[Rfam]
Nucleotides: 107
Base pairs, nucleotide, nucleotide: 001107002106003105004104005103006102007101008100013043014042015041016040017039021032022031023030026081027080028079029078044073045072046071047070049069050068051065052064053063054062077099082096083095084094085093086092
Number, partner (000 for none) and nucleotide at each position: 001107u002106u003105c004104u005103u006102a007101u008100c009000a010000a011000g012000a013043g014042a015041a016040g017039c018000a019000g020000a021032g022031g023030g024000g025000u026081c027080u028079g029078g030023c031022c032021c033000u034000a035000u036000g037000a038000a039017g040016c041015u042014u043013c044073a045072g046071c047070a048000a049069c050068c051065u052064c053063u054062g055000a056000u057000u058000a059000a060000a061000u062054c063053a064052g065051a066000a067000a068050g069049g070047u071046g072045c073044u074000a075000a076000u077099u078029c079028c080027a081026g082096c083095g084094a085093g086092a087000u088000u089000c090000u091000u092086u093085c094084u095083u096082g097000a098000a099077a100008g101007a102006u103005a104004a105003g106002a107001g

SAM riboswitch aptamer (S box leader): a 107-nucleotide RNA sequence from Oceanobacillus zhaokaii. It scores 99 bits against the family's covariance model. Pairs were carried over by alignment from the consensus structure, which is taken from published work. NCBI's taxonomy places the organism under Bacteria, Bacilli, Caryophanales, Bacillaceae, Oceanobacillus.